Proteobacterial sRNA sX11: a 143-nucleotide RNA from Xanthomonas boreopolis.
On this family, see Schmidtke et al., Nucleic Acids Res 2011: "Genome-wide transcriptome analysis of the plant pathogen Xanthomonas identifies sRNAs with putative virulence functions".
It is annotated as a small RNA.
Lineage of the source: Bacteria > Pseudomonadota > Gammaproteobacteria > Lysobacteraceae > Xanthomonas.
A search with the family's covariance model found it, with a score of 102 bits.

[Rfam]
RNA sequence: ACGCCAGUCGCAGUAUCCCAUUCGGUCCUACUCCCCAAGAGGCCAUCCCCAAGGGAGCUCAUGCUGCGGGGGCCCUGAGCAAGCCCUGUCACUGGCUCUUACAACAAACCCCGGUCUGCCAGGCAGCACCGGGGUUCUUUUUU
Number, nucleotide and partner (000 for none) at each position: 001a000002c000003g096004c095005c094006a093007g092008u091009c000010g067011c066012a065013g064014u063015a062016u061017c000018c000019c000020a046021u000022u000023c000024g044025g043026u042027c041028c039029u038030a000031c000032u000033c000034c000035c000036c000037a000038a029039g028040a000041g027042g026043c025044c024045a000046u020047c000048c055049c054050c000051a000052a000053g000054g049055g048056a000057g000058c000059u000060c000061a016062u015063g014064c013065u012066g011067c010068g000069g000070g086071g085072g084073c083074c000075c000076u000077g000078a000079g000080c000081a000082a000083g073084c072085c071086c070087u000088g000089u000090c000091a008092c007093u006094g005095g004096c003097u000098c000099u000100u000101a000102c000103a000104a000105c000106a000107a000108a135109c134110c133111c132112c131113g130114g129115u128116c126117u125118g124119c000120c000121a000122g000123g000124c118125a117126g116127c000128a115129c114130c113131g112132g111133g110134g109135u108136u000137c000138u000139u000140u000141u000142u000143u000